[Rfam]
RNA sequence: CUACUCCCUCUGUCCCAUAAUGUAAGACCUUUUUUGGCACUAGUGUAGUGUCAAAAAACGUCUUAUAUUAUGGGACGGAGGGAGUAG
Number, nucleotide and partner (000 for none) at each position: 001c000002u000003a085004c084005u083006c000007c081008c080009u079010c078011u077012g000013u075014c074015c073016c072017a071018u000019a069020a068021u067022g066023u065024a064025a063026g062027a061028c060029c000030u058031u057032u056033u055034u054035u053036g052037g051038c050039a049040c048041u047042a000043g000044u000045g000046u000047a041048g040049u039050g038051u037052c036053a035054a034055a033056a032057a031058a030059c000060g028061u027062c026063u025064u024065a023066u022067a021068u020069u019070a000071u017072g016073g015074g014075a013076c000077g011078g010079a009080g008081g007082g000083a005084g004085u003086a000087g000